[Rfam]
RNA sequence: GGAAAAGGAACUUCUACUAAAACCGCCCCCGUCGUGUGGGCAACGUAGAAAUCACCUCAUCCUUAGGA
Numbered sequence: 001g002g003a004a005a006a007g008g009a010a011c012u013u014c015u016a017c018u019a020a021a022a023c024c025g026c027c028c029c030c031g032u033c034g035u036g037u038g039g040g041c042a043a044c045g046u047a048g049a050a051a052u053c054a055c056c057u058c059a060u061c062c063u064u065a066g067g068a
Stems, first nucleotide, its partner, number of pairs: 012050006026040003030036001055067003
RNA: Bacillaceae-1 RNA
Organism: Oceanobacillus sp. J11TS1